Rfam assigns this 317-nucleotide RNA from Mycobacterium adipatum to the family "Mycobacterium smegmatis small RNA 1". Lineage of the source: Bacteria > Bacillati > Actinomycetes > Mycobacteriales > Mycobacterium. Its family is annotated with RNA polymerase binding in the Gene Ontology. Rfam's curators write: Mycobacterium smegmatis small RNA 1 is highly expressed during stationary phase of growth. Ms1 RNA directly interacts with RNA polymerase (RNAP), but in a different way than 6S, which is present in other bacteria. Ms1 does not require the presence of the main sigma factor for RNAP interaction. There is evidence that Ms1 RNA may function similar to 6S RNA in M. smegmatis which does not have 6S RNA. A search with the family's covariance model found it, with a score of 280 bits.
RNA sequence: ACGGAAGCUUGGUAAGGCCAAGGCCACACCGGAAGAGAAGGUGUGAUCUCCCGAGCCAGGCGUCCCAGCACGGAUCACCGGAACCCACGCGGAGCACAUGCCGCCAUACAGGCAGAAGCGUUGUGGGCCUGCGGAAUUCCGAAAAGCGAAUGGCGUCGACGGCCUCUUGGGUGGGGUCGCAGUCGUAGCGCAUCGGGAGAACGCCGAGGCCACCCACACAACCCACCAGAGCACGCUUGGUAACCGGAGUCCGUGCUAGCGGGCGGCGAGCCGAUUCGGACGAGAGUCCGAUCACGGAUCGUCGCCCGCUUCAUUUG
Numbered sequence: 001a002c003g004g005a006a007g008c009u010u011g012g013u014a015a016g017g018c019c020a021a022g023g024c025c026a027c028a029c030c031g032g033a034a035g036a037g038a039a040g041g042u043g044u045g046a047u048c049u050c051c052c053g054a055g056c057c058a059g060g061c062g063u064c065c066c067a068g069c070a071c072g073g074a075u076c077a078c079c080g081g082a083a084c085c086c087a088c089g090c091g092g093a094g095c096a097c098a099u100g101c102c103g104c105c106a107u108a109c110a111g112g113c114a115g116a117a118g119c120g121u122u123g124u125g126g127g128c129c130u131g132c133g134g135a136a137u138u139c140c141g142a143a144a145a146g147c148g149a150a151u152g153g154c155g156u157c158g159a160c161g162g163c164c165u166c167u168u169g170g171g172u173g174g175g176g177u178c179g180c181a182g183u184c185g186u187a188g189c190g191c192a193u194c195g196g197g198a199g200a201a202c203g204c205c206g207a208g209g210c211c212a213c214c215c216a217c218a219c220a221a222c223c224c225a226c227c228a229g230a231g232c233a234c235g236c237u238u239g240g241u242a243a244c245c246g247g248a249g250u251c252c253g254u255g256c257u258a259g260c261g262g263g264c265g266g267c268g269a270g271c272c273g274a275u276u277c278g279g280a281c282g283a284g285a286g287u288c289c290g291a292u293c294a295c296g297g298a299u300c301g302u303c304g305c306c307c308g309c310u311u312c313a314u315u316u317g
Stems, first nucleotide, its partner, number of pairs: 003065002007061006016052002021049002025045006067257008078247004085240003089236003094232002099114004120222006126211005131204003137198006146191003150186005160179007259309011271297003
Dot-bracket structure: ..((..((((((...((...((..((((((.........))))))..)).))...))))))..)).((((((((...((((...(((.(((..((...((((........)))).....((((((((((((((...((((((...(((.(((((.....(((((((......)))))))..)))))..))).))))))...)))..))))).....))))))........)).))).)))...))))..)))))))).(((((((((((.(((.....................))).)))))))))))........